[Rfam]
RNA sequence: UUCUUUUUCGGACGGUAUCUGCGACAAUAUGCGAACUUUUAACAUAUUGCACAUUUACCGGCCUGAAAUUAU
Numbered sequence: 001u002u003c004u005u006u007u008u009c010g011g012a013c014g015g016u017a018u019c020u021g022c023g024a025c026a027a028u029a030u031g032c033g034a035a036c037u038u039u040u041a042a043c044a045u046a047u048u049g050c051a052c053a054u055u056u057a058c059c060g061g062c063c064u065g066a067a068a069u070u071a072u
Stems, first nucleotide, its partner, number of pairs: 002071001005068003010063002013060002016057002020053002023050001025049007